The family of this 236-nucleotide RNA sequence from Tupaia belangeri is "Small nucleolar RNA SNORD17". The family has 19 seed sequences and 1,015 matches in Rfam 15.1. Rfam's curators write: The snoRNA HBI-43 belongs to the C/D family of snoRNAs, guiding 2'O-ribose methylation at position U3797 of the 28S rRNA. Pseudouridylation in position U3797 is predicted to be guided by the H/ACA snoRNA ACA48. On this family, see Huttenhofer et al., EMBO J 2001: "RNomics: an experimental approach that identifies 201 candidates for novel, small, non-messenger RNAs in mouse". It is one of the family's seed sequences. By type it is a C/D-box small nucleolar RNA.
RNA sequence: GUGAAAUGAUGAUUCAGUUUAUCCAUUCGCUGAGUGUGCUGUCCUGACCUCCUUCCAAGUCUCAGUUCCUGUUCUAGGAAUGUGGGGCCACGCAGCCUCCAAAUGCCCUACAGUCUGCAGUGUUCUACUGUGGGCUGUUUGUGUGUUGGUAGGCUGCUGGCAGGAAUGGUUGGUGUCAGCAGGGAUGGGGCCACUUGGUCCCAUCCCACCAAGAUGAGUGGUGGAAAUCUGAUCAC
Numbered sequence: 001g002u003g004a005a006a007u008g009a010u011g012a013u014u015c016a017g018u019u020u021a022u023c024c025a026u027u028c029g030c031u032g033a034g035u036g037u038g039c040u041g042u043c044c045u046g047a048c049c050u051c052c053u054u055c056c057a058a059g060u061c062u063c064a065g066u067u068c069c070u071g072u073u074c075u076a077g078g079a080a081u082g083u084g085g086g087g088c089c090a091c092g093c094a095g096c097c098u099c100c101a102a103a104u105g106c107c108c109u110a111c112a113g114u115c116u117g118c119a120g121u122g123u124u125c126u127a128c129u130g131u132g133g134g135c136u137g138u139u140u141g142u143g144u145g146u147u148g149g150u151a152g153g154c155u156g157c158u159g160g161c162a163g164g165a166a167u168g169g170u171u172g173g174u175g176u177c178a179g180c181a182g183g184g185a186u187g188g189g190g191c192c193a194c195u196u197g198g199u200c201c202c203a204u205c206c207c208a209c210c211a212a213g214a215u216g217a218g219u220g221g222u223g224g225a226a227a228u229c230u231g232a233u234c235a236c
Stems, first nucleotide, its partner, number of pairs: 010235005017228004023221007030213002034209002038180004042175001044173006050166001052164003055160002059088006065081006092157007105144002107141001110138013182207008191198002
Dot-bracket structure: .........(((((..((((..(((((((((..((..(((((.(((((((.(((((..((((((((((((.....)))))).))))))...(((((((......(((..(((((((((((((...)))))))))))))..).))......))))))).)).))).).)))))).).)))).((((((((.((....)).))))))))))..)).)))))))...))))..))))).
Taxonomically the source falls in Tupaia (Eukaryota, Deuterostomia, Vertebrata, Theria).